[Rfam]
RNA sequence: GCCGCGCCUAGCCCGACGGGGCGAACACCGGGAACCCUUGCCCGGCCGGCGCGGCACCCAUUCAAGGG
Numbered sequence: 001g002c003c004g005c006g007c008c009u010a011g012c013c014c015g016a017c018g019g020g021g022c023g024a025a026c027a028c029c030g031g032g033a034a035c036c037c038u039u040g041c042c043c044g045g046c047c048g049g050c051g052c053g054g055c056a057c058c059c060a061u062u063c064a065a066g067g068g
Stems, first nucleotide, its partner, number of pairs: 001055008011022004028045005035068006